The family of this 78-nucleotide RNA sequence from Alligator mississippiensis is "Mammalian CPEB3 ribozyme". A search with the family's covariance model found it, with a score of 36 bits.
[Rfam]
RNA sequence: GUCACAUGUUUGUAGGCCAUAGUAGAAGUGCUCGUGGUGCAGCCAGUCAGAUUCCAAAUGAAAUCUGCAAAUUCUGCU
Numbered sequence: 001g002u003c004a005c006a007u008g009u010u011u012g013u014a015g016g017c018c019a020u021a022g023u024a025g026a027a028g029u030g031c032u033c034g035u036g037g038u039g040c041a042g043c044c045a046g047u048c049a050g051a052u053u054c055c056a057a058a059u060g061a062a063a064u065c066u067g068c069a070a071a072u073u074c075u076g077c078u
Stems, first nucleotide, its partner, number of pairs: 015044003021078007028040003048067006